[Rfam]
RNA: UnaL2 LINE 3' element
Organism: Coregonus sp. 'balchen'
RNA sequence: UAUGCACACGACUGUAAGUCGCUUUAGAUAAAAGCGUCUGCUAAAUGUCAUAUU
Numbered sequence: 001u002a003u004g005c006a007c008a009c010g011a012c013u014g015u016a017a018g019u020c021g022c023u024u025u026a027g028a029u030a031a032a033a034g035c036g037u038c039u040g041c042u043a044a045a046u047g048u049c050a051u052a053u054u
Base pairs, nucleotide, nucleotide: 013043014041015040016039020036021035022034023033024032025031